Rfam assigns this 145-nucleotide sequence from Drosophila gunungcola to the family "Small nucleolar RNA psi28S-3378". The family's RNA type in Rfam is H/ACA-box small nucleolar RNA. About the family: psi28S-3378 is a member of the H/ACA class of snoRNA. It scores 158 bits against the family's covariance model. Gene Ontology terms of the family: RNA processing and nucleolus.
Nucleotides: 145
Stems, first nucleotide, its partner, number of pairs: 001061006014048003019043006071141004077135003082130005098125006105118003
Number, partner (000 for none) and nucleotide at each position: 001061a002060g003059c004058a005057c006056c007000a008000a009000a010000a011000a012000u013000c014048a015047g016046u017000u018000a019043c020042c021041a022040u023039g024038c025000g026000a027000u028000u029000g030000c031000u032000a033000a034000a035000c036000u037000a038024g039023c040022a041021u042020g043019g044000c045000g046016a047015c048014u049000a050000c051000g052000c053000u054000u055000a056006g057005g058004u059003g060002c061001u062000a063000a064000a065000a066000u067000u068000a069000a070000a071141u072140u073139c074138g075000c076000u077135a078134u079133a080000a081000u082130g083129c084128c085127g086126c087000a088000u089000a090000c091000u092000a093000a094000a095000c096000c097000a098125g099124a100123g101122c102121a103120u104000g105118c106117u107116a108000a109000c110000c111000u112000g113000c114000c115000c116107u117106a118105g119000a120103a121102u122101g123100c124099u125098u126086g127085u128084g129083g130082c131000c132000c133079u134078g135077u136000u137000u138074u139073g140072a141071g142000a143000c144000a145000g